The record is an 81-nucleotide RNA from Hordeum vulgare, which matches "Small nucleolar RNA Z162" in Rfam. It scores 68 bits against the family's covariance model. The literature on the family includes a 2003 paper in Nucleic Acids Res by Chen et al., "The high diversity of snoRNAs in plants: identification and comparative study of 120 snoRNA genes from Oryza sativa". Taxonomically the source falls in Hordeum vulgare (Eukaryota, Euphyllophyta, Magnoliopsida, Poales).
RNA sequence: GAUGGCACAAUGAGGAGUUAAUAUAUGUAUAGAGGUUGGAAUACCAAUGACACUUCAUGUCCUUUUCAUUCUGAGUGCCUU
Number, nucleotide and partner (000 for none) at each position: 001g000002a000003u000004g079005g078006c077007a076008c075009a000010a069011u068012g067013a066014g065015g000016a000017g000018u000019u000020a000021a000022u000023a000024u000025a000026u000027g000028u000029a000030u000031a000032g000033a000034g000035g044036u043037u000038g000039g000040a000041a000042u000043a036044c035045c000046a000047a000048u000049g000050a000051c000052a000053c000054u000055u000056c000057a000058u000059g000060u000061c000062c000063u000064u000065u014066u013067c012068a011069u010070u000071c000072u000073g000074a000075g008076u007077g006078c005079c004080u000081u000